[Rfam]
RNA sequence: GUUGAAACUCCAUCUAUAAAUGGAUAAGACUUCGGUCUUAGUGUGUGCGAGUUCUUGUGAAAACUAAAAAAAAGGAGCAAUACCGACCCUCUUGAUAGAACAAGAAAUUGGCUAUUGCUCCUUUUUU
Number, nucleotide and partner (000 for none) at each position: 001g000002u000003u000004g000005a000006a000007a000008c000009u024010c023011c022012a021013u020014c000015u000016a000017u000018a000019a000020a013021u012022g011023g010024a009025u000026a000027a000028g000029a000030c000031u000032u000033c000034g000035g000036u000037c000038u000039u000040a000041g000042u000043g000044u000045g000046u000047g000048c000049g000050a000051g000052u000053u000054c000055u000056u000057g000058u000059g000060a000061a000062a000063a000064c000065u000066a000067a000068a000069a000070a000071a124072a123073a122074g121075g120076a119077g118078c117079a116080a115081u114082a113083c000084c000085g000086a109087c000088c000089c000090u105091c104092u103093u102094g000095a000096u000097a000098g000099a000100a000101c000102a093103a092104g091105a090106a000107a000108u000109u086110g000111g000112c000113u082114a081115u080116u079117g078118c077119u076120c075121c074122u073123u072124u071125u000126u000127u000
This 127-nucleotide RNA sequence from Vernicia fordii belongs to the Rfam family "Plastid-psbA-1 3UTR RNA". NCBI's taxonomy places the organism under Eukaryota, Viridiplantae, Pentapetalae, fabids, Vernicia. Rfam's curators put it in the seed alignment. By type it is a cis-regulatory element.